[Rfam]
RNA: Guanidine-I riboswitch aptamer
RNA sequence: UCGAUUGUUUUCUAGGGUUCCGCAAUCAACUGAUUGGCCUGGUCCGAGAGAAAACGCACAGUUUUACUGUGUCACGGAGGGACAAAAGCCCGGGAGUA
Numbered sequence: 001u002c003g004a005u006u007g008u009u010u011u012c013u014a015g016g017g018u019u020c021c022g023c024a025a026u027c028a029a030c031u032g033a034u035u036g037g038c039c040u041g042g043u044c045c046g047a048g049a050g051a052a053a054a055c056g057c058a059c060a061g062u063u064u065u066a067c068u069g070u071g072u073c074a075c076g077g078a079g080g081g082a083c084a085a086a087a088g089c090c091c092g093g094g095a096g097u098a
Stems, first nucleotide, its partner, number of pairs: 007055006015045002020042002022039001023036005057071005073093001075096001079091003